[Rfam]
RNA sequence: GGAAAGGCCCAUAAAAGGAGUAGUGCCCCAACCCGGGGCGACUUUCCCAUAUUCCGAAUUC
Numbered sequence: 001g002g003a004a005a006g007g008c009c010c011a012u013a014a015a016a017g018g019a020g021u022a023g024u025g026c027c028c029c030a031a032c033c034c035g036g037g038g039c040g041a042c043u044u045u046c047c048c049a050u051a052u053u054c055c056g057a058a059u060u061c
Stems, first nucleotide, its partner, number of pairs: 017045005023039002026036002
A member of the RNA family "Plastid-psbN 5UTR RNA" from Triticum aestivum, 61 nucleotides long. Plastid psbN is a non-coding RNA (ncRNA) recognised in plastids. It was reported as a conserved 11 stem-loop in the prime untranslated region (5UTR) of psbN genes. The match comes from Rfam's covariance-model search (64 bits). Pairs were carried over by alignment from the consensus structure, which was predicted with LocARNA. The family's RNA type in Rfam is cis-regulatory element. On this family, see Zhelyazkova et al., Plant Cell 2012: "The primary transcriptome of barley chloroplasts: numerous noncoding RNAs and the dominating role of the plastid-encoded RNA polymerase".